The record is a 153-nucleotide RNA sequence from Desulfovibrio sp. 6_1_46AFAA, which matches "FMN riboswitch aptamer (RFN element)" in Rfam.

[Rfam]
RNA sequence: CACUAUUCUCAGGGCGGGGUGCAAGUCCCCACCGGCGGUGAUGCGGUCGCGCCAUGCGCGCGCCGCCAGCCCGCGAGCGCCUUCCGUGAAGGGUCAGCAGAUUCGGUGUGAUUCCGGAGCCGACGGUAACAGUCCGGAUGGAAGAGAAUGGUC
Number, nucleotide and partner (000 for none) at each position: 001c000002a000003c151004u150005a149006u148007u147008c146009u145010c144011a000012g000013g000014g000015c000016g000017g029018g028019g027020u000021g000022c000023a000024a000025g000026u000027c019028c018029c017030c000031a133032c132033c122034g121035g074036c073037g072038g071039u000040g000041a000042u000043g000044c000045g000046g000047u000048c000049g000050c000051g000052c000053c000054a000055u000056g000057c000058g000059c000060g000061c000062g000063c000064c000065g000066c000067c000068a000069g120070c119071c038072c037073g036074c035075g000076a000077g098078c097079g000080c000081c000082u000083u000084c000085c000086g000087u000088g000089a000090a000091g000092g000093g000094u000095c000096a000097g078098c077099a000100g000101a000102u118103u117104c116105g115106g114107u000108g000109u000110g000111a000112u000113u000114c106115c105116g104117g103118a102119g070120c069121c034122g033123a000124c136125g135126g134127u000128a000129a000130c000131a000132g032133u031134c126135c125136g124137g000138a000139u000140g000141g000142a000143a000144g010145a009146g008147a007148a006149u005150g004151g003152u000153c000

The match comes from Rfam's covariance-model search (113 bits). Gene Ontology term of the family: FMN binding. On this family, see Vitreschak et al., Nucleic Acids Res 2002: "Regulation of riboflavin biosynthesis and transport genes in bacteria by transcriptional and translational attenuation". The source organism's lineage runs through Bacteria, Pseudomonadati, Thermodesulfobacteriota, Desulfovibrionia and Desulfovibrio.